[Rfam]
RNA sequence: CUCUUAUAAAGAGCGGUGGAGGGACUGGCCCUGUGAAGCCCGGCAACCAUUCAGUUUACUGAAAAAGGUGCCAAUUCCUGCAAAGCAGAACGCUUUGGGAGAUGAGAG
Numbered sequence: 001c002u003c004u005u006a007u008a009a010a011g012a013g014c015g016g017u018g019g020a021g022g023g024a025c026u027g028g029c030c031c032u033g034u035g036a037a038g039c040c041c042g043g044c045a046a047c048c049a050u051u052c053a054g055u056u057u058a059c060u061g062a063a064a065a066a067g068g069u070g071c072c073a074a075u076u077c078c079u080g081c082a083a084a085g086c087a088g089a090a091c092g093c094u095u096u097g098g099g100a101g102a103u104g105a106g107a108g
Stems, first nucleotide, its partner, number of pairs: 001108007013041001015040003021031003025080001027078002042072004047068002050063003076100001081097006
RNA: SAM riboswitch aptamer (S box leader)